This 79-nucleotide RNA from Oceanobacillus zhaokaii belongs to the Rfam family "ZMP/ZTP riboswitch aptamer (pfl RNA motif)".
[Rfam]
RNA sequence: AAAACGAUGUGUGACUGGCGAACACGGAUCACCGUGAGGGAACACAUUCGUUGAAUAGCCGUUCGCCUGGGCAGAGCUA
Numbered sequence: 001a002a003a004a005c006g007a008u009g010u011g012u013g014a015c016u017g018g019c020g021a022a023c024a025c026g027g028a029u030c031a032c033c034g035u036g037a038g039g040g041a042a043c044a045c046a047u048u049c050g051u052u053g054a055a056u057a058g059c060c061g062u063u064c065g066c067c068u069g070g071g072c073a074g075a076g077c078u079a
Stems, first nucleotide, its partner, number of pairs: 003051001006048007015039002017067005024035004056074001058072003
Dot-bracket structure: ..(..(((((((..(([[[[[..((((....))))..))..)))))))..)....(.(((..]]]]]..))).).....
It scores 58 bits against the family's covariance model.
The source organism's lineage runs through Bacteria, Bacilli, Caryophanales, Bacillaceae and Oceanobacillus.